Annotation:
mir-160 microRNA precursor family: an 89-nucleotide RNA sequence from Manihot esculenta. Gene Ontology terms of the family: miRNA-mediated post-transcriptional gene silencing and RISC complex. The source organism's lineage runs through Eukaryota, Euphyllophyta, Spermatophyta, Crotonoideae and Manihot. The literature on the family includes a 2002 paper in Cell by Rhoades et al., "Prediction of plant microRNA targets".

RNA sequence: UUGUGCCUGGUUCCCUGUAUGCCACAAGCCGACUCCAAUCCCUUCUCUCGAUUGGCUCUUGUUGGUGGCAUGCACGGACUCAAGCACAC
Numbered sequence: 001u002u003g004u005g006c007c008u009g010g011u012u013c014c015c016u017g018u019a020u021g022c023c024a025c026a027a028g029c030c031g032a033c034u035c036c037a038a039u040c041c042c043u044u045c046u047c048u049c050g051a052u053u054g055g056c057u058c059u060u061g062u063u064g065g066u067g068g069c070a071u072g073c074a075c076g077g078a079c080u081c082a083a084g085c086a087c088a089c
Base pairs, nucleotide, nucleotide: 002088003087004086005085006084008082009081010080012078013077014076016074017073018072019071020070021069022068023067024066027063028062029061